A member of the RNA family "MIR2275 microRNA precursor family" from Sorghum bicolor, 82 nucleotides long. It scores 69 bits against the family's covariance model.
RNA sequence: CCAUUUGAAGUGAGGAUUAGAGGUAACUGAACCAUCCAUUGGAAGAAAGGUUCAGUUUCCUCUAAUAUCUCAUCUUGAAUGG
Numbered sequence: 001c002c003a004u005u006u007g008a009a010g011u012g013a014g015g016a017u018u019a020g021a022g023g024u025a026a027c028u029g030a031a032c033c034a035u036c037c038a039u040u041g042g043a044a045g046a047a048a049g050g051u052u053c054a055g056u057u058u059c060c061u062c063u064a065a066u067a068u069c070u071c072a073u074c075u076u077g078a079a080u081g082g
Stems, first nucleotide, its partner, number of pairs: 004079005011072004016066006023059001025057006032050002
The source organism's lineage runs through Eukaryota, Streptophyta, Magnoliopsida, Panicoideae and Sorghum. The family's consensus secondary structure was predicted with RNAalifold.